Description
The record is a 494-nucleotide part of an RNA from Erpetoichthys calabaricus, which matches "Eukaryotic large subunit ribosomal RNA" in Rfam. Its Rfam clan is "LSU clan". Lineage of the source: Eukaryota > Opisthokonta > Eumetazoa > Teleostomi > Erpetoichthys. It scores 2760 bits against the family's covariance model.
RNA sequence: GGUAGUAGCAAAUAUUCAAACGAGCGCUUUGAAGGCCGAAGUGGAGCAGGGUUCCAUGUGAACAGCAGUUGAACAUGGGUCAGUCGGUCCUAAGGGAUGGGCGAGCGCCUUUCCGAAUCGUGGGGCGAUGGCCUCCGUCGCCCCCGGGCCCAUCGAAAGGGAGUCGGGUUCAGAUCCCCGAAUCCGGAGUGGCGGAGACGGGCGCCCUCCCCCCCUCCCCGGGCGGGGGGGGCGUCCAGUGCGGUGACGCAAGCGAACCCGGAGAAGCUGGCGGGAGUCCCGGGGAGAGUUCUCUUUUCUCGUUGAAGGGCAGGGCCACCCUGGAAUGGGUUCGUCCCGAGAGAGGGGCCCGCGCCUUGGAAAGCGUCGCGCUUCCGGCGGCGUCCGGAGAGCUCUCGCCGGCCCUUGAAAAUCCGGGGGAGAUGGUGUAAAUCUCGCGCCGGGCCGUACCCAUAUCCGCAGCAGGUCUCCAAGGUGAACAGCCUCUGGCAUGU
Numbered sequence: 001g002g003u004a005g006u007a008g009c010a011a012a013u014a015u016u017c018a019a020a021c022g023a024g025c026g027c028u029u030u031g032a033a034g035g036c037c038g039a040a041g042u043g044g045a046g047c048a049g050g051g052u053u054c055c056a057u058g059u060g061a062a063c064a065g066c067a068g069u070u071g072a073a074c075a076u077g078g079g080u081c082a083g084u085c086g087g088u089c090c091u092a093a094g095g096g097a098u099g100g101g102c103g104a105g106c107g108c109c110u111u112u113c114c115g116a117a118u119c120g121u122g123g124g125g126c127g128a129u130g131g132c133c134u135c136c137g138u139c140g141c142c143c144c145c146g147g148g149c150c151c152a153u154c155g156a157a158a159g160g161g162a163g164u165c166g167g168g169u170u171c172a173g174a175u176c177c178c179c180g181a182a183u184c185c186g187g188a189g190u191g192g193c194g195g196a197g198a199c200g201g202g203c204g205c206c207c208u209c210c211c212c213c214c215c216u217c218c219c220c221g222g223g224c225g226g227g228g229g230g231g232g233c234g235u236c237c238a239g240u241g242c243g244g245u246g247a248c249g250c251a252a253g254c255g256a257a258c259c260c261g262g263a264g265a266a267g268c269u270g271g272c273g274g275g276a277g278u279c280c281c282g283g284g285g286a287g288a289g290u291u292c293u294c295u296u297u298u299c300u301c302g303u304u305g306a307a308g309g310g311c312a313g314g315g316c317c318a319c320c321c322u323g324g325a326a327u328g329g330g331u332u333c334g335u336c337c338c339g340a341g342a343g344a345g346g347g348g349c350c351c352g353c354g355c356c357u358u359g360g361a362a363a364g365c366g367u368c369g370c371g372c373u374u375c376c377g378g379c380g381g382c383g384u385c386c387g388g389a390g391a392g393c394u395c396u397c398g399c400c401g402g403c404c405c406u407u408g409a410a411a412a413u414c415c416g417g418g419g420g421a422g423a424u425g426g427u428g429u430a431a432a433u434c435u436c437g438c439g440c441c442g443g444g445c446c447g448u449a450c451c452c453a454u455a456u457c458c459g460c461a462g463c464a465g466g467u468c469u470c471c472a473a474g475g476u477g478a479a480c481a482g483c484c485u486c487u488g489g490c491a492u493g494u
Base pairs, nucleotide, nucleotide: 015033016032017031018030019029020028034492035490036489037488043471044470045469046468049451050450054078055077056076057075058074059073063071064070085447086446087445089160090159094154095153096112097111100109101108102107164181165180166179167178168177184443185442186441187440230436231435232434235430240251241250242249243248258418259417260416261415262414263413267403268402269401270400272398273397274396275395276394277393278392280388281387282386283303285301286300287299288298307358308357309356310355311354319347320346321345322344327339328338329337330336365383366382367381368380369379370378457466458465473485474484475483476482